[Rfam]
RNA sequence: GAAGUUUGGAUGAUGAUUAGUUGCAUAGUUCAAAUGAUCAGUGAUGACUAUGAUUACACUGAAUUGUCUUUCGCUCCUAACUGACAACCUUC
Numbered sequence: 001g002a003a004g005u006u007u008g009g010a011u012g013a014u015g016a017u018u019a020g021u022u023g024c025a026u027a028g029u030u031c032a033a034a035u036g037a038u039c040a041g042u043g044a045u046g047a048c049u050a051u052g053a054u055u056a057c058a059c060u061g062a063a064u065u066g067u068c069u070u071u072c073g074c075u076c077c078u079a080a081c082u083g084a085c086a087a088c089c090u091u092c
Stems, first nucleotide, its partner, number of pairs: 004089001006087003

This 92-nucleotide RNA from Miscanthus lutarioriparius belongs to the Rfam family "Small nucleolar RNA snR60/Z15/Z230/Z193/J17". A reference for the family is Lowe and Eddy (1999), "A computational screen for methylation guide snoRNAs in yeast", Science. Gene Ontology terms of the family: nucleolus and RNA processing. Its Rfam clan is "SNORD77 clan". It scores 78 bits against the family's covariance model. The family has 23 seed sequences and 3,592 matches in Rfam 15.1. Pairs were carried over by alignment from the consensus structure. Rfam classes the family as a C/D-box small nucleolar RNA.